This 151-nucleotide RNA sequence from Radiobacillus deserti belongs to the Rfam family "FMN riboswitch aptamer (RFN element)". The base pairs follow the family's consensus structure, which is taken from published work. The organism belongs to Radiobacillus, within Bacteria.
[Rfam]
RNA sequence: GGUUUCCUUUGGGGCAGGGUGAAAUUCCCGACCGACGGUGAUGGAUAUUUGAAAUGAUAUCCUUAGUCCGUGACCCGGAGCAUGCGAAUGCGAAGGUGGAUUUGGUGUGAUUCCAAAGCCGACAGUAAAGUCUGGAUGGUAAAAGGAAAAA
Numbered sequence: 001g002g003u004u005u006c007c008u009u010u011g012g013g014g015c016a017g018g019g020u021g022a023a024a025u026u027c028c029c030g031a032c033c034g035a036c037g038g039u040g041a042u043g044g045a046u047a048u049u050u051g052a053a054a055u056g057a058u059a060u061c062c063u064u065a066g067u068c069c070g071u072g073a074c075c076c077g078g079a080g081c082a083u084g085c086g087a088a089u090g091c092g093a094a095g096g097u098g099g100a101u102u103u104g105g106u107g108u109g110a111u112u113c114c115a116a117a118g119c120c121g122a123c124a125g126u127a128a129a130g131u132c133u134g135g136a137u138g139g140u141a142a143a144a145g146g147a148a149a150a151a
Stems, first nucleotide, its partner, number of pairs: 003149008017029003031131002033121002035071004066119002075096002101117005123134003
Dot-bracket structure: ..((((((((......(((.......))).[[((((((...........................[[))))...((..................))....(((((.......)))))]])).(((....]]))).......))))))))..
The match comes from Rfam's covariance-model search (114 bits).
Gene Ontology term of the family: FMN binding.